Rfam assigns this 80-nucleotide RNA sequence to the family "nadA riboswitch". Rfam's curators put it in the seed alignment. The family's consensus secondary structure is taken from published work.

RNA sequence: GCUUUCAACAUCCCCGUUCCGGUACAAGCGAUCACCAUUGCGGAAUAGCCGCAAUCGAAUUCGCGUCCGGAGCUGAAGGC
Numbered sequence: 001g002c003u004u005u006c007a008a009c010a011u012c013c014c015c016g017u018u019c020c021g022g023u024a025c026a027a028g029c030g031a032u033c034a035c036c037a038u039u040g041c042g043g044a045a046u047a048g049c050c051g052c053a054a055u056c057g058a059a060u061u062c063g064c065g066u067c068c069g070g071a072g073c074u075g076a077a078g079g080c
Stems, first nucleotide, its partner, number of pairs: 001080007016073007028064004